Background:
The family of this 49-nucleotide RNA sequence from Lancefieldella rimae is "DUF3800-XI RNA". The sequence is in the family's curated seed alignment. The source organism's lineage runs through Bacteria, Bacillati, Atopobiaceae, Lancefieldella and Lancefieldella rimae. Rfam classes the family as a small RNA. The base pairs follow the family's consensus structure, which is taken from published work. Rfam's curators write: Actinobacteria, Firmicutes, Proteobacteria, Spirochaetes (1 example).
RNA sequence: UGGACUGGCUUUUGUGGCCUUGGUCCACCCUACGGCGGGGGAAGUCCCC
Numbered sequence: 001u002g003g004a005c006u007g008g009c010u011u012u013u014g015u016g017g018c019c020u021u022g023g024u025c026c027a028c029c030c031u032a033c034g035g036c037g038g039g040g041g042a043a044g045u046c047c048c049c
Stems, first nucleotide, its partner, number of pairs: 001027006007019004
Dot-bracket structure: ((((((((((.....))))..))))))......................